[Rfam]
This 82-nucleotide sequence from Caenorhabditis auriculariae belongs to the Rfam family "mir-46/mir-47/mir-281 microRNA precursor family". NCBI's taxonomy places the organism under Eukaryota, Bilateria, Nematoda, Rhabditida, Caenorhabditis. For this family Rfam cites "An abundant class of tiny RNAs with probable regulatory roles in Caenorhabditis elegans" (Lau et al., Science, 2001). Pairs were carried over by alignment from the consensus structure, which was predicted with RNAalifold. It scores 61 bits against the family's covariance model.
RNA sequence: ACGACGAAACGCUGAAGAGAGCCUUCUAUAGACAGUCACGCAGUGGCACUGUCAUGGAGUCGCUCUCUUCAGAUUUCGGAUG
Number, nucleotide and partner (000 for none) at each position: 001a000002c000003g000004a000005c000006g000007a000008a000009a000010c000011g000012c000013u000014g070015a069016a068017g067018a066019g000020a064021g063022c062023c000024u000025u058026c057027u056028a055029u000030a000031g053032a052033c051034a000035g049036u048037c000038a000039c000040g000041c000042a000043g000044u000045g000046g000047c000048a036049c035050u000051g033052u032053c031054a000055u028056g027057g026058a025059g000060u000061c000062g022063c021064u020065c000066u018067c017068u016069u015070c014071a000072g000073a000074u000075u000076u000077c000078g000079g000080a000081u000082g000